[Rfam]
A member of the RNA family "terC RNA" from Paracoccus onubensis, 56 nucleotides long. Pairs were carried over by alignment from the consensus structure, which is taken from published work.
RNA sequence: GCUGCGGACCGGGCCCCUCUGACGGGAGAUUAUCUACCGUGAUGUCGGCCGCAUCG
Numbered sequence: 001g002c003u004g005c006g007g008a009c010c011g012g013g014c015c016c017c018u019c020u021g022a023c024g025g026g027a028g029a030u031u032a033u034c035u036a037c038c039g040u041g042a043u044g045u046c047g048g049c050c051g052c053a054u055c056g
Stems, first nucleotide, its partner, number of pairs: 006050002009048004022040004027035003